[Rfam]
RNA: HIV Ribosomal frameshift signal
RNA sequence: UUUUUUAAGGAAAAUUUAGCCUUCCAGCAAAGGGAGGCCAAGGAAUUUUCCU
Number, nucleotide and partner (000 for none) at each position: 001u000002u000003u000004u000005u000006u000007a000008a052009g051010g050011a049012a048013a047014a046015u042016u041017u040018a000019g038020c037021c036022u035023u034024c033025c032026a000027g000028c000029a000030a000031a000032g025033g024034g023035a022036g021037g020038c019039c000040a017041a016042g015043g000044a000045a000046u014047u013048u012049u011050c010051c009052u008